[Rfam]
The family of this 571-nucleotide part of an RNA from Tupaia belangeri is "Eukaryotic small subunit ribosomal RNA".

RNA sequence: UAUCUCAAAGAUUAAGCCAUGCAUGUCUAAGUACACAUGGCUGGUACAGUGAAACUGCAAAUGGCUCAUUAAAUCAGUUAUGGUUCCUUUGGUCACUUGCUCCUCUCCUACUUGGAUAACUGUGGUAAUUAUAGAGCUAAUACAUGCUUACGGGUGCUGACCCCUGACAAGGUGGGGAUGUGUGCAUUUAUCAGAUCAAAACCAACGGUCAGCUCCCCCCCACCUGGGCCGGGGGUGCGGGCGCCAGUGGCUUUGGUGACUCUAGAUAACCUCGGGCUGAUCGCACGCCCCCUGUGGUGGUGAUGACCCAUUCAAACGUCUGCCCUAUCAACUUUCGAUGGUAGUUGCCGUGCCUACCAUGGUGACCAUGGAUGACAGGGAAUCAGGGUUUGAUUCCAGAGAAGGAGCCUGAGAAAUGGCUACCACAUCCAAGGAAGGCAGCAGGUGCCCAAAUUACCCACUCCCAACCUGGGGAGGUAGUGACAAAAAAUAACAAUACAGGACUCUUUUGAGGCUCUGUAAUUGGAAUGAGUCCACUUUAAAUCCUUUAACGAGUAUCCAUUAGGAUCUA
Dot-bracket structure: ..(.(...((.....(((.(((..((...(((....((..........))...)))))......(((.......(((...(..((....(((..................(.((.....((.((.......)).))......)).).......((((...((............))...))))....(((((........((((...............................((....))..........)))).......)))))...........((((.((((......))))))))....)))...)))...)))..((....(((....(((((((.........))))))))))......))......((((((....))))...))..)))..(.(((..........))).)..(.((....)).)...)))))).).....(.(((...(((((...))))).)))).)....).).....(((((((((.(((....)))..)))))).)))......((..(...........)..))...................

The family has 90 seed sequences and 75,755 matches in Rfam 15.1.